This 71-nucleotide RNA sequence from Myotis brandtii belongs to the Rfam family "mir-9193 microRNA precursor family".
RNA sequence: CGCGGGCGGGGGUCCCUCAGCCUGGAUUGCAAGAGGGUGCAGGCCAGGCCAAGGGACCCCACUGGUUCACG
Numbered sequence: 001c002g003c004g005g006g007c008g009g010g011g012g013u014c015c016c017u018c019a020g021c022c023u024g025g026a027u028u029g030c031a032a033g034a035g036g037g038u039g040c041a042g043g044c045c046a047g048g049c050c051a052a053g054g055g056a057c058c059c060c061a062c063u064g065g066u067u068c069a070c071g
Stems, first nucleotide, its partner, number of pairs: 004068001006066001007064001009060009020049003024045002027042005